Record summary: Rfam assigns this 72-nucleotide sequence from Sciurus carolinensis to the family "mir-153 microRNA precursor family". Lineage of the source: Eukaryota > Boreoeutheria > Sciuridae > Sciurini > Sciurus. Rfam links the family to the GO terms RISC complex and miRNA-mediated post-transcriptional gene silencing. The match comes from Rfam's covariance-model search (65 bits).

RNA sequence: ACCAGUGUCACUUCUGUGAUCUGCAGCUAGUAUUCUCACUCUAUUUGCAUAGUCACAAAAAUGGUCAUUGGC
Numbered sequence: 001a002c003c004a005g006u007g008u009c010a011c012u013u014c015u016g017u018g019a020u021c022u023g024c025a026g027c028u029a030g031u032a033u034u035c036u037c038a039c040u041c042u043a044u045u046u047g048c049a050u051a052g053u054c055a056c057a058a059a060a061a062u063g064g065u066c067a068u069u070g071g072c
Stems, first nucleotide, its partner, number of pairs: 002071006008064003012060002015057006022049005028043001